Shown here is a 47-nucleotide RNA, a member of the family "Plastid-rpl16 group II-D1 intron". On this family, see Richter et al., Plant Commun 2023: "Retrograde signaling in plants: A critical review focusing on the GUN pathway and beyond". The sequence is in the family's curated seed alignment. Plastid-rpl16 is a non-coding RNA (ncRNA) recognised in plastids. It was recognised in and intronic region of a ribosome rpl16 gene.
RNA sequence: AAGAGCUCCGAGCCAAUAAAGACUAAGAGGGUUGUCUCAAGAAUAAA
Numbered sequence: 001a002a003g004a005g006c007u008c009c010g011a012g013c014c015a016a017u018a019a020a021g022a023c024u025a026a027g028a029g030g031g032u033u034g035u036c037u038c039a040a041g042a043a044u045a046a047a
Stems, first nucleotide, its partner, number of pairs: 007041001010038003014034004
Dot-bracket structure: ......(..(((.((((.............)))).)))..)......